[Rfam]
RNA sequence: CACCGAGGAGCGCUGCAGCUGAGUCGAUUUAGAUUCAGUGAGGCUCGGACCCUAAUUCCCAACCGCGCUCACCCACU
Numbered sequence: 001c002a003c004c005g006a007g008g009a010g011c012g013c014u015g016c017a018g019c020u021g022a023g024u025c026g027a028u029u030u031a032g033a034u035u036c037a038g039u040g041a042g043g044c045u046c047g048g049a050c051c052c053u054a055a056u057u058c059c060c061a062a063c064c065g066c067g068c069u070c071a072c073c074c075a076c077u
Base pairs, nucleotide, nucleotide: 003048004047005046006045019038020037021036022035023034024033
The family of this 77-nucleotide RNA sequence from Limnohabitans sp. JirII-31 is "SAH (S-adenosyl-L-homocysteine) riboswitch aptamer". Rfam links the family to the GO terms regulation of gene expression and S-adenosylhomocysteine metabolic process.